Annotation:
Rfam assigns this 201-nucleotide RNA sequence to the family "manA RNA". It is annotated as a cis-regulatory element. Rfam's curators put it in the seed alignment. manA RNA has been located in 5'UTR regions of genes of mannose or fructose metabolism. Has been proposed as a cis-regulatory element and as a riboswitch candidate for his complex secondary structure.
RNA sequence: UGUUGGAGCGACGGUUCUGACACGGAAGUGACUGAAGAACCCUGUUGGAAUUAGGCGGGGUAAAGUAUUGAGUCAGGCGUGGUGGCCGCUGCUAGGAAUAGUAGAACCCCGACCAAGGGGACUCAAGUUGUAACGAACCUACUAUCGCACACUAGCGAUUCCCGUUACUUGAGGGUAAAAUGAAUUCCCUUCUUCCACCCU
Number, nucleotide and partner (000 for none) at each position: 001u022002g021003u020004u019005g018006g017007a016008g015009c014010g000011a000012c000013g000014g009015u008016u007017c006018u005019g004020a003021c002022a001023c000024g196025g195026a194027a193028g192029u000030g000031a066032c065033u000034g000035a000036a000037g000038a000039a000040c000041c000042c000043u000044g000045u059046u058047g000048g056049a000050a000051u000052u000053a000054g000055g000056c048057g000058g046059g045060g000061u000062a000063a000064a000065g032066u031067a000068u000069u125070g124071a123072g122073u121074c120075a000076g087077g086078c085079g000080u115081g114082g113083u112084g000085g078086c077087c076088g000089c104090u103091g102092c101093u100094a099095g000096g000097a000098a000099u094100a093101g092102u091103a090104g089105a000106a000107c119108c118109c117110c000111g000112a083113c082114c081115a080116a000117g109118g108119g107120g074121a073122c072123u071124c070125a069126a000127g000128u000129u000130g168131u167132a166133a165134c164135g163136a000137a000138c000139c000140u000141a000142c000143u000144a000145u158146c157147g156148c155149a000150c182151a181152c000153u179154a000155g148156c147157g146158a145159u000160u000161c000162c000163c135164g134165u133166u132167a131168c130169u000170u000171g191172a190173g189174g188175g187176u000177a000178a000179a153180a000181u151182g150183a000184a000185u000186u000187c175188c174189c173190u172191u171192c028193u027194u026195c025196c024197a000198c000199c000200c000201u000